[Rfam]
RNA sequence: UCUGUAAAAGGCAAGCCGGUUGCAAGGCCGGGACGCAAAACCACCGGUCCGAACACAUUCGGACAGCGGAGUUGCCGGGC
Numbered sequence: 001u002c003u004g005u006a007a008a009a010g011g012c013a014a015g016c017c018g019g020u021u022g023c024a025a026g027g028c029c030g031g032g033a034c035g036c037a038a039a040a041c042c043a044c045c046g047g048u049c050c051g052a053a054c055a056c057a058u059u060c061g062g063a064c065a066g067c068g069g070a071g072u073u074g075c076c077g078g079g080c
Stems, first nucleotide, its partner, number of pairs: 003077002011036002016031006034066001039073003044069003047064005
Rfam assigns this 80-nucleotide sequence from Desulfonema ishimotonii to the family "c-di-GMP-I-GGC riboswitch aptamer". NCBI's taxonomy places the organism under Bacteria, Pseudomonadati, Desulfobacteria, Desulfococcaceae, Desulfonema. A search with the family's covariance model found it, with a score of 62 bits.